Rfam assigns this 89-nucleotide RNA from Sinocyclocheilus rhinocerous to the family "mir-204 microRNA precursor family". A reference for the family is Chen et al. (2005), "The developmental miRNA profiles of zebrafish as determined by small RNA cloning", Genes Dev.
RNA sequence: GUGUGACCUCCUGGAUUUCCCUUUGUCAUCCUAUGCCUAGAGUUCCUGAUGAGGCUGGGACAGCAAAGGGAGAUCCAGACGUCAUCCCA
Numbered sequence: 001g002u003g004u005g006a007c008c009u010c011c012u013g014g015a016u017u018u019c020c021c022u023u024u025g026u027c028a029u030c031c032u033a034u035g036c037c038u039a040g041a042g043u044u045c046c047u048g049a050u051g052a053g054g055c056u057g058g059g060a061c062a063g064c065a066a067a068g069g070g071a072g073a074u075c076c077a078g079a080c081g082u083c084a085u086c087c088c089a
Stems, first nucleotide, its partner, number of pairs: 018071006025064002029060005035055004
Dot-bracket structure: .................((((((.((..(((((.((((.............)))))))))..)).))))))..................